Shown here is a 303-nucleotide RNA sequence from Abrus precatorius, a member of the family "Plant signal recognition particle RNA". For this family Rfam cites "Structural and energetic analysis of RNA recognition by a universally conserved protein from the signal recognition particle" (Batey et al., J Mol Biol, 2001). It scores 240 bits against the family's covariance model. The source organism's lineage runs through Eukaryota, Mesangiospermae, Fabaceae, Abreae and Abrus. The base pairs follow the family's consensus structure, which is taken from published work.
[Rfam]
RNA sequence: GCCGAGCUGAGUAACGCCAGCUUGUAACUUGAGUAAGGGCAAUAGAAUGAUGGGACAGGGCUUUGCCUUGCUAGGUUGGGUUGGUGGAUGCACUUUGCUGGCCUGCCCGCUCCAAGUUGAGAGAUGAAGCAUGGCACCUGAACGAAGGUUUAGGUGUUAUGGUUCCUGGACGAGAGGGUACAGCGUGAGGCUGGUUACACAGAGCAGCGAAGACCUCUGGCUCCUGACAGUGGAGGGAUAACAGGCCUCUGCAUAUCCAACCCACAAAGCCUGGUGAGUCUAGUCUCUUGGACCAUCAUUUUU
Number, nucleotide and partner (000 for none) at each position: 001g040002c039003c038004g023005a022006g021007c020008u019009g018010a000011g000012u000013a000014a000015c000016g000017c000018c009019a008020g007021c006022u005023u004024g000025u000026a000027a000028c037029u036030u035031g000032a000033g000034u000035a030036a029037g028038g003039g002040c001041a000042a000043u000044a302045g301046a300047a299048u298049g297050a296051u295052g294053g293054g000055a000056c290057a289058g287059g286060g285061c283062u282063u000064u000065g279066c278067c000068u277069u276070g275071c274072u273073a272074g271075g270076u269077u268078g263079g262080g261081u260082u259083g258084g257085u000086g000087g000088a254089u253090g252091c000092a000093c000094u000095u000096u000097g000098c000099u000100g247101g246102c245103c244104u243105g242106c000107c237108c236109g000110c235111u234112c233113c232114a231115a000116g228117u227118u226119g225120a000121g223122a222123g221124a000125u000126g165127a164128a163129g000130c161131a160132u159133g158134g157135c156136a155137c154138c153139u152140g151141a150142a149143c148144g000145a000146a000147g000148g143149u142150u141151u140152a139153g138154g137155u136156g135157u134158u133159a132160u131161g130162g000163u128164u127165c126166c000167u000168g000169g000170a000171c000172g000173a218174g217175a216176g215177g214178g000179u000180a000181c000182a000183g000184c209185g208186u207187g000188a000189g000190g000191c202192u201193g200194g000195u000196u000197a000198c000199a000200c193201a192202g191203a000204g000205c000206a000207g186208c185209g184210a000211a000212g000213a000214c177215c176216u175217c174218u173219g000220g000221c123222u122223c121224c000225u119226g118227a117228c116229a000230g000231u114232g113233g112234a111235g110236g108237g107238a000239u000240a000241a000242c105243a104244g103245g102246c101247c100248u000249c000250u000251g000252c090253a089254u088255a000256u000257c084258c083259a082260a081261c080262c079263c078264a000265c000266a000267a000268a077269g076270c075271c074272u073273g072274g071275u070276g069277a068278g066279u065280c000281u000282a062283g061284u000285c060286u059287c058288u000289u057290g056291g000292a000293c053294c052295a051296u050297c049298a048299u047300u046301u045302u044303u000